A member of the RNA family "SAM/SAH riboswitch aptamer" from Loktanella atrilutea, 50 nucleotides long. Its family is annotated with S-adenosylmethionine metabolic process and regulation of gene expression in the Gene Ontology. NCBI's taxonomy places the organism under Bacteria, Pseudomonadota, Rhodobacterales, Roseobacteraceae, Loktanella. For this family Rfam cites "The structure of the SAM/SAH-binding riboswitch" (Weickhmann et al., Nucleic Acids Res, 2019).
RNA sequence: GACCCGCCACAACGGCUUCCUGACGUGGCGGAGUAUUUUUGACUGGAGCA
Number, nucleotide and partner (000 for none) at each position: 001g000002a000003c000004c031005c030006g029007c028008c027009a026010c025011a000012a000013c022014g021015g049016c048017u047018u000019c046020c045021u014022g013023a000024c000025g010026u009027g008028g007029c006030g005031g004032a000033g000034u000035a000036u000037u000038u000039u000040u000041g000042a000043c000044u000045g020046g019047a017048g016049c015050a000